[Rfam]
RNA sequence: ACACGGGAAAGGAGGUGGUCCAGAACAUGAAUUCUUCUUGGACGCGUGAGGUGACUGUCCGCUAGUCGCCCGAUCAGCUCGGACGGAUUGCACCGGUCCCGAACCGCUCCUGCGGCAGCGAGACCACGGCAGUCACCGCAGCCCGUGGGCGCCGUGCCCCGUCCAGCACGGCACGCCGAUCCUCCUGACCGGCAGCCCACGGGCUGUUCCAU
Number, nucleotide and partner (000 for none) at each position: 001a000002c000003a000004c000005g000006g000007g000008a000009a000010a000011g000012g000013a000014g059015g058016u057017g056018g055019u054020c000021c000022a000023g000024a000025a000026c000027a000028u000029g000030a000031a000032u000033u000034c000035u000036u000037c000038u000039u000040g000041g000042a000043c000044g000045c000046g000047u000048g000049a000050g000051g000052u000053g000054a019055c018056u017057g016058u015059c014060c120061g119062c118063u117064a000065g000066u114067c000068g113069c112070c000071c000072g000073a000074u000075c000076a000077g000078c000079u000080c000081g000082g000083a000084c000085g000086g000087a000088u000089u000090g000091c000092a000093c000094c000095g000096g000097u000098c000099c000100c000101g000102a000103a000104c000105c000106g000107c000108u000109c000110c000111u000112g069113c068114g066115g000116c000117a063118g062119c061120g060121a000122g000123a000124c000125c000126a000127c000128g000129g000130c000131a000132g000133u000134c000135a000136c000137c000138g000139c206140a205141g204142c203143c202144c201145g200146u199147g198148g197149g196150c195151g000152c171153c170154g169155u168156g167157c166158c000159c000160c000161g000162u000163c000164c000165a000166g157167c156168a155169c154170g153171g152172c000173a000174c000175g000176c000177c000178g000179a000180u000181c000182c000183u000184c000185c000186u000187g000188a000189c000190c000191g000192g000193c000194a000195g150196c149197c148198c147199a146200c145201g144202g143203g142204c141205u140206g139207u000208u000209c000210c000211a000212u000

This 212-nucleotide sequence from Actinotalea soli belongs to the Rfam family "Actinobacteria sRNA Ms_IGR-5".
The family's RNA type in Rfam is small RNA.
Taxonomically the source falls in Actinotalea (Bacteria, Actinomycetota, Micrococcales, Cellulomonadaceae).
The literature on the family includes a 2013 paper in RNA by Li et al., "Identification of small RNAs in Mycobacterium smegmatis using heterologous Hfq".
A search with the family's covariance model found it, with a score of 88 bits.